RNA sequence: CAUUUAUCAGUGAUGUCUUAUAAUAAAUGUCUGAACAUAUGACACUUAGUGAUUUCAGUUUUCUAACUGAGAUAAAUG
Dot-bracket structure: .(((((((..............................................................))))))).

The family of this 78-nucleotide sequence from Xenopus tropicalis is "Small nucleolar RNA SNORD72". The source organism's lineage runs through Eukaryota, Vertebrata, Gnathostomata, Batrachia and Silurana. The literature on the family includes a 2001 paper in EMBO J by Huttenhofer et al., "RNomics: an experimental approach that identifies 201 candidates for novel, small, non-messenger RNAs in mouse". Rfam classes the family as a C/D-box small nucleolar RNA. The match comes from Rfam's covariance-model search (67 bits). Rfam's curators write: snoRNA HBII-240 belongs to the CD family of snoRNAs.